This 45-nucleotide RNA sequence from Mycobacterium sp. MCS belongs to the Rfam family "Mycobacterium sRNA Ms_AS-5". Pairs were carried over by alignment from the consensus structure. By type it is a small RNA. The organism belongs to Mycobacterium, within Bacteria.

[Rfam]
RNA sequence: AUCCGGGUACUGGCCGGUGAAGAUCGUCGGCCGGCUCGGCACGCA
Numbered sequence: 001a002u003c004c005g006g007g008u009a010c011u012g013g014c015c016g017g018u019g020a021a022g023a024u025c026g027u028c029g030g031c032c033g034g035c036u037c038g039g040c041a042c043g044c045a
Base pairs, nucleotide, nucleotide: 012032013031014030015029016028017027018026